Rfam assigns this 127-nucleotide RNA from Corynebacterium endometrii to the family "atpB RNA". The match comes from Rfam's covariance-model search (134 bits). The family's consensus secondary structure is taken from published work.

RNA sequence: CUGUCACAACUUCGCUGAUGUGCGACGGAGUCCGUAGUUGUGUCAGAGAGUUUGAGACGUCCAUCGCACCGUAUGAAUUCGACACUCAUACGGCCCGAACACGGGAGAGAACGCUGAGCGUUACAAC
Numbered sequence: 001c002u003g004u005c006a007c008a009a010c011u012u013c014g015c016u017g018a019u020g021u022g023c024g025a026c027g028g029a030g031u032c033c034g035u036a037g038u039u040g041u042g043u044c045a046g047a048g049a050g051u052u053u054g055a056g057a058c059g060u061c062c063a064u065c066g067c068a069c070c071g072u073a074u075g076a077a078u079u080c081g082a083c084a085c086u087c088a089u090a091c092g093g094c095c096c097g098a099a100c101a102c103g104g105g106a107g108a109g110a111a112c113g114c115u116g117a118g119c120g121u122u123a124c125a126a127c
Stems, first nucleotide, its partner, number of pairs: 001046003005042007069093008078084001